RNA sequence: CUAUGAAGCCGACCGCUUACCAGCACGACACCAGCGCCGCCCGGAUGGCCUCCGGCAUGACCUCGCGCGCGCGUCGACCGGAACCCCACAUUUCCGCUGGGUAACCGGAGCGUCGUGCUGUCCG
Numbered sequence: 001c002u003a004u005g006a007a008g009c010c011g012a013c014c015g016c017u018u019a020c021c022a023g024c025a026c027g028a029c030a031c032c033a034g035c036g037c038c039g040c041c042c043g044g045a046u047g048g049c050c051u052c053c054g055g056c057a058u059g060a061c062c063u064c065g066c067g068c069g070c071g072c073g074u075c076g077a078c079c080g081g082a083a084c085c086c087c088a089c090a091u092u093u094c095c096g097c098u099g100g101g102u103a104a105c106c107g108g109a110g111c112g113u114c115g116u117g118c119u120g121u122c123c124g
Stems, first nucleotide, its partner, number of pairs: 032120005038112003041108002043079002046076004055070002058067002080106002085101004089096001
RNA: Xanthomonadaceae sRNA Xoo5
Organism: Xanthomonas boreopolis